Notes:
A member of the RNA family "Alphaproteobacterial ar15" from Ensifer fredii, 113 nucleotides long. Gene Ontology term of the family: protein binding. The literature on the family includes a 2013 paper in PLoS One by Torres-Quesada et al., "Independent activity of the homologous small regulatory RNAs AbcR1 and AbcR2 in the legume symbiont Sinorhizobium meliloti". Lineage of the source: Bacteria > Pseudomonadati > Alphaproteobacteria > Ensifer > Ensifer fredii. The sequence is in the family's curated seed alignment. Pairs were carried over by alignment from the consensus structure.
RNA sequence: GGUUGGUGCACCUGGCGGCUUCCUCCUCCCCGGCCGUCGCAUCAGCUGUUCCCCUCUGGAGGUUUCCAACCUUCACAACUGACAGGGCCCAAGUUCGCUUGUGGCCCUCUUUU
Numbered sequence: 001g002g003u004u005g006g007u008g009c010a011c012c013u014g015g016c017g018g019c020u021u022c023c024u025c026c027u028c029c030c031c032g033g034c035c036g037u038c039g040c041a042u043c044a045g046c047u048g049u050u051c052c053c054c055u056c057u058g059g060a061g062g063u064u065u066c067c068a069a070c071c072u073u074c075a076c077a078a079c080u081g082a083c084a085g086g087g088c089c090c091a092a093g094u095u096c097g098c099u100u101g102u103g104g105c106c107c108u109c110u111u112u113u
Stems, first nucleotide, its partner, number of pairs: 001047005007041003015037004057075007084108006090101004